[Rfam]
RNA: Eukaryotic large subunit ribosomal RNA, nucleotides 1645 to 2098
Organism: Aurelia sp. Incheon-2006
RNA sequence: GGUAGUAGCAAAUAUUCAAAUGAGAGCUUUGAAGACCGAAGUGGAGAAAGGUUCCGUGUGAACAGCAGUUGGACACGGGUUAGUCGAUCCUAAGAGAUAGGGAAACUCCGUUUCAAAGCAGCCAUUUCGCGUGGCUCGUACUAUCGAAAGGGAAUCGGGUUAAUAUUCCCGAACCGGAACGUGGAUAUUCCCACUUGUGGGAGUAGCGGCAACGCAACCGAACUCGGAGACGUCGGCGAGAGCCCUGGGAAGAGUUAUCUUUUCUUGUUAACGGGCUGACACCCUGGAAUCAGAUUGCCUGGAGAUAGGGUUUAAUGCUCGGUAAAGCACCACACUUCUUGUGGUGUCCGGUGCGCUCUCGACGGCCCUUGAAAAUCCGAGGGAGUGAUUGAUUUUCACGUCUGCUCGUACUCAUAACCGCAGCAGGUCUCCAAGGUGAGCAGCCUCUGGUUGA
Numbered sequence: 001g002g003u004a005g006u007a008g009c010a011a012a013u014a015u016u017c018a019a020a021u022g023a024g025a026g027c028u029u030u031g032a033a034g035a036c037c038g039a040a041g042u043g044g045a046g047a048a049a050g051g052u053u054c055c056g057u058g059u060g061a062a063c064a065g066c067a068g069u070u071g072g073a074c075a076c077g078g079g080u081u082a083g084u085c086g087a088u089c090c091u092a093a094g095a096g097a098u099a100g101g102g103a104a105a106c107u108c109c110g111u112u113u114c115a116a117a118g119c120a121g122c123c124a125u126u127u128c129g130c131g132u133g134g135c136u137c138g139u140a141c142u143a144u145c146g147a148a149a150g151g152g153a154a155u156c157g158g159g160u161u162a163a164u165a166u167u168c169c170c171g172a173a174c175c176g177g178a179a180c181g182u183g184g185a186u187a188u189u190c191c192c193a194c195u196u197g198u199g200g201g202a203g204u205a206g207c208g209g210c211a212a213c214g215c216a217a218c219c220g221a222a223c224u225c226g227g228a229g230a231c232g233u234c235g236g237c238g239a240g241a242g243c244c245c246u247g248g249g250a251a252g253a254g255u256u257a258u259c260u261u262u263u264c265u266u267g268u269u270a271a272c273g274g275g276c277u278g279a280c281a282c283c284c285u286g287g288a289a290u291c292a293g294a295u296u297g298c299c300u301g302g303a304g305a306u307a308g309g310g311u312u313u314a315a316u317g318c319u320c321g322g323u324a325a326a327g328c329a330c331c332a333c334a335c336u337u338c339u340u341g342u343g344g345u346g347u348c349c350g351g352u353g354c355g356c357u358c359u360c361g362a363c364g365g366c367c368c369u370u371g372a373a374a375a376u377c378c379g380a381g382g383g384a385g386u387g388a389u390u391g392a393u394u395u396u397c398a399c400g401u402c403u404g405c406u407c408g409u410a411c412u413c414a415u416a417a418c419c420g421c422a423g424c425a426g427g428u429c430u431c432c433a434a435g436g437u438g439a440g441c442a443g444c445c446u447c448u449g450g451u452u453g454a
Stems, first nucleotide, its partner, number of pairs: 015033006034452004043432004049412002054078006063071002085408003089151002094145002096112003100109003119138001121136001155172005175404004196400005201394002206215003223381006232366004237361007245351003248268001250266004272321005281311006290302004328346007418427002434446004